[Rfam]
RNA sequence: CAAAUGAUGUUGCCUGUGGCCUCUGGCCGUUGGCUAGAUCCUGGCGCACCUUCCCCGGUGCCAGGCUCUCCAACGGCCAGGGACUAGAGGCAGCAGCAAGAUCUGA
Numbered sequence: 001c002a003a004a005u006g007a008u009g010u011u012g013c014c015u016g017u018g019g020c021c022u023c024u025g026g027c028c029g030u031u032g033g034c035u036a037g038a039u040c041c042u043g044g045c046g047c048a049c050c051u052u053c054c055c056c057g058g059u060g061c062c063a064g065g066c067u068c069u070c071c072a073a074c075g076g077c078c079a080g081g082g083a084c085u086a087g088a089g090g091c092a093g094c095a096g097c098a099a100g101a102u103c104u105g106a
Stems, first nucleotide, its partner, number of pairs: 010093006018085002021082013036069003040065008

mraW RNA: a 106-nucleotide RNA sequence.
By type it is a cis-regulatory element.
Pairs were carried over by alignment from the consensus structure, which is taken from published work.